[Rfam]
RNA sequence: GCAGUAAGUCGGUCUGUCGCCUGUUGCUCAGCAAUGGGAGGAAAGUCCGGACAACACAGAGCACCACACUUCCUAACGGGAAGAUAGUCGCAAGGCUAUUGUAGUGUAACAGAAAACAACCGCCUCGUAAGGGGUAAGGGUGAAAAGGUGGGGUAAGAGCCCACCGGUGCUGUAGGCAACUAUGGCAGCCGUACACCAUGUGGGUUGCAAGACCAUGUAUAUCACGGUUUCCUUCGGGAUACGGGGCUGCUCGUCCCGGUGCCAUGUUGCAGCCGUGAAGGGUAGGUCGCUAAAGGUAUUGGGUGACUAAUAUCUCAGAUUAAUGACAGACACCGGGCUUGCCCGGUACAGAAUCCGGCUUAUAGACUUACUGUUUAU
Numbered sequence: 001g002c003a004g005u006a007a008g009u010c011g012g013u014c015u016g017u018c019g020c021c022u023g024u025u026g027c028u029c030a031g032c033a034a035u036g037g038g039a040g041g042a043a044a045g046u047c048c049g050g051a052c053a054a055c056a057c058a059g060a061g062c063a064c065c066a067c068a069c070u071u072c073c074u075a076a077c078g079g080g081a082a083g084a085u086a087g088u089c090g091c092a093a094g095g096c097u098a099u100u101g102u103a104g105u106g107u108a109a110c111a112g113a114a115a116a117c118a119a120c121c122g123c124c125u126c127g128u129a130a131g132g133g134g135u136a137a138g139g140g141u142g143a144a145a146a147g148g149u150g151g152g153g154u155a156a157g158a159g160c161c162c163a164c165c166g167g168u169g170c171u172g173u174a175g176g177c178a179a180c181u182a183u184g185g186c187a188g189c190c191g192u193a194c195a196c197c198a199u200g201u202g203g204g205u206u207g208c209a210a211g212a213c214c215a216u217g218u219a220u221a222u223c224a225c226g227g228u229u230u231c232c233u234u235c236g237g238g239a240u241a242c243g244g245g246g247c248u249g250c251u252c253g254u255c256c257c258g259g260u261g262c263c264a265u266g267u268u269g270c271a272g273c274c275g276u277g278a279a280g281g282g283u284a285g286g287u288c289g290c291u292a293a294a295g296g297u298a299u300u301g302g303g304u305g306a307c308u309a310a311u312a313u314c315u316c317a318g319a320u321u322a323a324u325g326a327c328a329g330a331c332a333c334c335g336g337g338c339u340u341g342c343c344c345g346g347u348a349c350a351g352a353a354u355c356c357g358g359c360u361u362a363u364a365g366a367c368u369u370a371c372u373g374u375u376u377a378u
Base pairs, nucleotide, nucleotide: 001374002373003372004371005370006369007368008367009366010365011363012331013330014329015328016327017326018325020038021037022036023035024034025033026032027031043361044360045359047358048357049356050355051354052207053206054205055204064203065202066201067200068199069083070082071081072080073079084099086097087096088095089094100198101197104196105195106194107193108192120139121138122135123134124133125132126131147165148164149163150162151161152160167189168187169186170185171184172183173182174181175180211288212287213286214285222278223277224276225275226274227273228272229271295314296313297312298311299310300309301308302307
Shown here is a 378-nucleotide RNA from Xiashengella succiniciproducens, a member of the family "Bacterial RNase P class A". Rfam classes the family as a ribozyme.